[Rfam]
RNA sequence: CGCCCGGGCGACCGUGGCUUUAGAUAGUUACUGUUCCACUGGGGGAGUAACAGUCUACAGCCAUGGUCGCCGGGACAGG
Numbered sequence: 001c002g003c004c005c006g007g008g009c010g011a012c013c014g015u016g017g018c019u020u021u022a023g024a025u026a027g028u029u030a031c032u033g034u035u036c037c038a039c040u041g042g043g044g045g046a047g048u049a050a051c052a053g054u055c056u057a058c059a060g061c062c063a064u065g066g067u068c069g070c071c072g073g074g075a076c077a078g079g
Stems, first nucleotide, its partner, number of pairs: 012066002015063004023055003027051006
The record is a 79-nucleotide RNA sequence, which matches "mir-132 microRNA precursor family" in Rfam.
The base pairs follow the family's consensus structure, which was predicted with RNAalifold.
It is one of the family's seed sequences.
The family has 50 seed sequences and 1,023 matches in Rfam 15.1.